[Rfam]
RNA sequence: AGGUUAAGGGUCAAAGGGUCGAAAGCGCGGUCAGGCUUGCAUGAUAAGGCUUUUGAACUUGUGACCCGCUAAACAUGAGGAAGUAGCGAUUUGCGUAGCAAAUCAGCGGGAUUCCGAAAGUUUACAGAAUUGCGUGAGCAGCUUGCUGCGAAGCAAUUCGUUGACACA
Number, nucleotide and partner (000 for none) at each position: 001a000002g167003g165004u164005u163006a162007a161008g000009g066010g065011u064012c063013a000014a000015a060016g059017g058018g000019u056020c055021g054022a053023a052024a051025g050026c049027g000028c000029g000030g000031u044032c043033a042034g000035g040036c000037u000038u000039g000040c035041a000042u033043g032044a031045u000046a000047a000048g000049g026050c025051u024052u023053u022054u021055g020056a019057a000058c017059u016060u015061g000062u000063g012064a011065c010066c009067c000068g000069c000070u124071a123072a122073a121074c120075a000076u118077g000078a000079g115080g114081a113082a112083g000084u000085a000086g107087c106088g104089a103090u102091u101092u100093g099094c098095g000096u000097a000098g094099c093100a092101a091102a090103u089104c088105a000106g087107c086108g000109g000110g000111a000112u082113u081114c080115c079116g000117a000118a076119a000120g074121u073122u072123u071124a070125c000126a000127g159128a158129a157130u156131u155132g154133c153134g000135u000136g000137a000138g149139c148140a147141g146142c000143u000144u000145g000146c141147u140148g139149c138150g000151a000152a000153g133154c132155a131156a130157u129158u128159c127160g000161u007162u006163g005164a004165c003166a000167c002168a000
The record is a 168-nucleotide sequence, which matches "Clostridiales-1 RNA" in Rfam. The sequence is in the family's curated seed alignment.